Shown here is a 153-nucleotide sequence from Verrucomicrobia bacterium LW23, a member of the family "SAM riboswitch aptamer (S box leader)".
The match comes from Rfam's covariance-model search (69 bits).
Rfam describes the family as follows. The SAM riboswitch is found upstream of a number of genes which code for proteins involved in methionine or cysteine biosynthesis in Gram-positive bacteria.
RNA sequence: UUCUUAUCGAGAGCGGUGGAGGGUCCUGGCCCUGCGAAGCCGCGGCAACCGAGGGAAGGCAGCUUCUGGUGAAGCGGCCUGACCUGUCUAGGUGCCAACCCCAGCUCCGGGCUCUGCAUCCUUAAUGCGGUAGCCGGCGGAGGAGGAUGAGGA
Numbered sequence: 001u002u003c004u005u006a007u008c009g010a011g012a013g014c015g016g017u018g019g020a021g022g023g024u025c026c027u028g029g030c031c032c033u034g035c036g037a038a039g040c041c042g043c044g045g046c047a048a049c050c051g052a053g054g055g056a057a058g059g060c061a062g063c064u065u066c067u068g069g070u071g072a073a074g075c076g077g078c079c080u081g082a083c084c085u086g087u088c089u090a091g092g093u094g095c096c097a098a099c100c101c102c103a104g105c106u107c108c109g110g111g112c113u114c115u116g117c118a119u120c121c122u123u124a125a126u127g128c129g130g131u132a133g134c135c136g137g138c139g140g141a142g143g144a145g146g147a148u149g150a151g152g153a
Stems, first nucleotide, its partner, number of pairs: 001153008013043005021032003026104004044096004049092002051088002100145001105142005